Background:
Shown here is an 81-nucleotide RNA sequence from Sideroxydans sp. CL21, a member of the family "c-di-GMP-I riboswitch aptamer". Rfam's curators write: GEMM was predicted in a large-scale screen for bacterial structured RNA regulatory elements. Genes associated with GEMM are involved in a diverse array of functions, including chemotaxis regulation, signal transduction, secretion and chitin. The match comes from Rfam's covariance-model search (68 bits).
RNA sequence: CACAGUACUUGGCAAACGUACUGAAAAGUACGGGCGCAAAGUCUCCGGCCUAAGGGAAACUAUGGUAGCGGGACUGCGGCA
Numbered sequence: 001c002a003c004a005g006u007a008c009u010u011g012g013c014a015a016a017c018g019u020a021c022u023g024a025a026a027a028g029u030a031c032g033g034g035c036g037c038a039a040a041g042u043c044u045c046c047g048g049c050c051u052a053a054g055g056g057a058a059a060c061u062a063u064g065g066u067a068g069c070g071g072g073a074c075u076g077c078g079g080c081a
Stems, first nucleotide, its partner, number of pairs: 012037002017032006040075004045071003048066003055060001
Dot-bracket structure: ...........((...((((((....))))))...))..((((.((((((....(....)...)))..)))))))......